[Rfam]
RNA sequence: AGGGCGGUAUCUAGCGGGAACUGCACCUGUUGGAAUAAUUGAAAACAAUCAGUUCCAUAUGUUCUGCCUUGAUCUUUAUAGAAAGACAGGGACGGAGGA
Numbered sequence: 001a002g003g004g005c006g007g008u009a010u011c012u013a014g015c016g017g018g019a020a021c022u023g024c025a026c027c028u029g030u031u032g033g034a035a036u037a038a039u040u041g042a043a044a045a046c047a048a049u050c051a052g053u054u055c056c057a058u059a060u061g062u063u064c065u066g067c068c069u070u071g072a073u074c075u076u077u078a079u080a081g082a083a084a085g086a087c088a089g090g091g092a093c094g095g096a097g098g099a
Stems, first nucleotide, its partner, number of pairs: 001028003004024005010019002064095003067091005073086005
The record is a 99-nucleotide RNA from Sporosarcina sp. JAI121, which matches "pan motif" in Rfam. Lineage of the source: Bacteria > Bacillota > Bacilli > Caryophanales > Sporosarcina. The match comes from Rfam's covariance-model search (60 bits).